[Rfam]
RNA: bantam microRNA precursor family
Organism: Frankliniella occidentalis
RNA sequence: UACAGUUCACGAAACUGGUUUUCCCAAUGAUUUUACAGAUGUAUUUGAUUUCUGAGAUCAUUGUGAAAGCUGAUUUCGCUAU
Numbered sequence: 001u002a003c004a005g006u007u008c009a010c011g012a013a014a015c016u017g018g019u020u021u022u023c024c025c026a027a028u029g030a031u032u033u034u035a036c037a038g039a040u041g042u043a044u045u046u047g048a049u050u051u052c053u054g055a056g057a058u059c060a061u062u063g064u065g066a067a068a069g070c071u072g073a074u075u076u077c078g079c080u081a082u
Stems, first nucleotide, its partner, number of pairs: 010078005016072008025063001028060006